RNA sequence: AUGCAUCCCUUUGACAGACCUGGAGCAAUUAUGUCUGCUUUUAAGGUUUCUACUAAGAUGGAAAAAAAAAAUUUCCUUGUGCUUUCUCUCUGCCUGAUUGUGGCAGUCUAGAUUGAAUAGGGGAAUACAAGA
Numbered sequence: 001a002u003g004c005a006u007c008c009c010u011u012u013g014a015c016a017g018a019c020c021u022g023g024a025g026c027a028a029u030u031a032u033g034u035c036u037g038c039u040u041u042u043a044a045g046g047u048u049u050c051u052a053c054u055a056a057g058a059u060g061g062a063a064a065a066a067a068a069a070a071a072u073u074u075c076c077u078u079g080u081g082c083u084u085u086c087u088c089u090c091u092g093c094c095u096g097a098u099u100g101u102g103g104c105a106g107u108c109u110a111g112a113u114u115g116a117a118u119a120g121g122g123g124a125a126u127a128c129a130a131g132a
Stems, first nucleotide, its partner, number of pairs: 002062001004060004012052002016049005023040005028034001074124005082115001085112003090106005
RNA: Small nucleolar RNA SNORA31